SAM (S-adenosyl methionine) riboswitch aptamer: a 114-nucleotide RNA from Paeniglutamicibacter gangotriensis.
The base pairs follow the family's consensus structure, which is taken from published work.
SAM-IV is a mRNA element that regulates gene expression via direct sensing of S-adenosylmethionine (SAM or AdoMet).
NCBI's taxonomy places the organism under Bacteria, Actinomycetes, Micrococcales, Micrococcaceae, Paeniglutamicibacter gangotriensis.
It scores 79 bits against the family's covariance model.
[Rfam]
RNA sequence: AAUCAAGAGUGCCAACAUAAAAGCCCUGGCUUGUUGACCGGCAACCCUCUCACGGUAGUGGGGUGCUCCAGGUGAUGAUUCGGCCUUCCGGGACCUCGGAGGCAAAUACCGCAC
Numbered sequence: 001a002a003u004c005a006a007g008a009g010u011g012c013c014a015a016c017a018u019a020a021a022a023g024c025c026c027u028g029g030c031u032u033g034u035u036g037a038c039c040g041g042c043a044a045c046c047c048u049c050u051c052a053c054g055g056u057a058g059u060g061g062g063g064u065g066c067u068c069c070a071g072g073u074g075a076u077g078a079u080u081c082g083g084c085c086u087u088c089c090g091g092g093a094c095c096u097c098g099g100a101g102g103c104a105a106a107u108a109c110c111g112c113a114c
Base pairs, nucleotide, nucleotide: 001080002079003078004077009039011038013036014035015034016033022031023030040067041066042065045063046062047061049058050057083103084102085101086100088099089098090097091096